Overview
Shown here is a 579-nucleotide part of an RNA from Tepidanaerobacter syntrophicus, a member of the family "Bacterial small subunit ribosomal RNA". Taxonomically the source falls in Tepidanaerobacter (Bacteria, Bacillati, Clostridia, Thermosediminibacterales). A search with the family's covariance model found it, with a score of 1580 bits. On this family, see Cannone et al., BMC Bioinformatics 2002: "The comparative RNA web (CRW) site: an online database of comparative sequence and structure information for ribosomal, intron, and other RNAs".
RNA sequence: UGACGGGGGCCCGCACAAGCGGUGGAGCAUGUGGUUUAAUUCGAAGCAACGCGAAGAACCUUACCAGGCCUUGACAUAUAGGUGGUAGAGACCGGAAACGGAAUCGACCCUUGGGAAACCAAGGGAGCCUAUACAGGUGGUGCAUGGUUGUCGUCAGCUCGUGUCGUGAGAUGUUGGGUUAAGUCCCGCAACGAGCGCAACCCUUCUACUUAGUUGCCAGCACUUAAAGGUGGGCACUCUAAGUAGACCGCCGUCGAUAAGACGGAGGAAGGUGGGGAUGACGUCAAAUCAUCAUGCCCUUUAUGGCCUGGGCCACACACGUGCUACAAUGGCCUGAACAACGGGCAGCAAGGGAGCGAUCCUAAGCUAAUCCCUAAAAACAGGUCUCAGUUCGGAUUGCAGGCUGCAACUCGCCUGCAUGAAGUCGGAAUCGCUAGUAAUCGCGGAUCAGCAUGCCGCGGUGAAUACGUUCUCGGGCCUUGUACACACCGCCCGUCACACCACGAAAGUUGGCAACACCCGAAGCCGGGAUUAACCGUCGAAGGUGGGGUCAGCGAUUGGGGUGAAGUCGUAACAAGG
Numbered sequence: 001u002g003a004c005g006g007g008g009g010c011c012c013g014c015a016c017a018a019g020c021g022g023u024g025g026a027g028c029a030u031g032u033g034g035u036u037u038a039a040u041u042c043g044a045a046g047c048a049a050c051g052c053g054a055a056g057a058a059c060c061u062u063a064c065c066a067g068g069c070c071u072u073g074a075c076a077u078a079u080a081g082g083u084g085g086u087a088g089a090g091a092c093c094g095g096a097a098a099c100g101g102a103a104u105c106g107a108c109c110c111u112u113g114g115g116a117a118a119c120c121a122a123g124g125g126a127g128c129c130u131a132u133a134c135a136g137g138u139g140g141u142g143c144a145u146g147g148u149u150g151u152c153g154u155c156a157g158c159u160c161g162u163g164u165c166g167u168g169a170g171a172u173g174u175u176g177g178g179u180u181a182a183g184u185c186c187c188g189c190a191a192c193g194a195g196c197g198c199a200a201c202c203c204u205u206c207u208a209c210u211u212a213g214u215u216g217c218c219a220g221c222a223c224u225u226a227a228a229g230g231u232g233g234g235c236a237c238u239c240u241a242a243g244u245a246g247a248c249c250g251c252c253g254u255c256g257a258u259a260a261g262a263c264g265g266a267g268g269a270a271g272g273u274g275g276g277g278a279u280g281a282c283g284u285c286a287a288a289u290c291a292u293c294a295u296g297c298c299c300u301u302u303a304u305g306g307c308c309u310g311g312g313c314c315a316c317a318c319a320c321g322u323g324c325u326a327c328a329a330u331g332g333c334c335u336g337a338a339c340a341a342c343g344g345g346c347a348g349c350a351a352g353g354g355a356g357c358g359a360u361c362c363u364a365a366g367c368u369a370a371u372c373c374c375u376a377a378a379a380a381c382a383g384g385u386c387u388c389a390g391u392u393c394g395g396a397u398u399g400c401a402g403g404c405u406g407c408a409a410c411u412c413g414c415c416u417g418c419a420u421g422a423a424g425u426c427g428g429a430a431u432c433g434c435u436a437g438u439a440a441u442c443g444c445g446g447a448u449c450a451g452c453a454u455g456c457c458g459c460g461g462u463g464a465a466u467a468c469g470u471u472c473u474c475g476g477g478c479c480u481u482g483u484a485c486a487c488a489c490c491g492c493c494c495g496u497c498a499c500a501c502c503a504c505g506a507a508a509g510u511u512g513g514c515a516a517c518a519c520c521c522g523a524a525g526c527c528g529g530g531a532u533u534a535a536c537c538g539u540c541g542a543a544g545g546u547g548g549g550g551u552c553a554g555c556g557a558u559u560g561g562g563g564u565g566a567a568g569u570c571g572u573a574a575c576a577a578g579g
Stems, first nucleotide, its partner, number of pairs: 001486002003483003007480007015470002019434005024327001026325008034316002040055004064311007077133007088105002092101003108125007136300002139298004145294002147289003150285001152283002157196006163172003175188004202277004207245007217234002221232003248268002251265005331386006343374003348367002353362003393424001398419007440462007489578001491575001494571002499565004504560003509555006517547004525540001527538003